[Rfam]
RNA sequence: CGGGGCGCGUCGGGAGAGCGCGGUGAACGUCGCCGUUCAUCGCCGCCGAAGGGGAACACCCGCAAACUCUCAGGCAAAAGGACCGUCGCGCCGGC
Numbered sequence: 001c002g003g004g005g006c007g008c009g010u011c012g013g014g015a016g017a018g019c020g021c022g023g024u025g026a027a028c029g030u031c032g033c034c035g036u037u038c039a040u041c042g043c044c045g046c047c048g049a050a051g052g053g054g055a056a057c058a059c060c061c062g063c064a065a066a067c068u069c070u071c072a073g074g075c076a077a078a079a080g081g082a083c084c085g086u087c088g089c090g091c092c093g094g095c
Stems, first nucleotide, its partner, number of pairs: 006090004011085003020043007045075003048071002052069003
Glycine riboswitch aptamer: a 95-nucleotide RNA from Pararobbsia silviterrae. On this family, see Mandal et al., Science 2004: "A glycine-dependent riboswitch that uses cooperative binding to control gene expression". It scores 54 bits against the family's covariance model.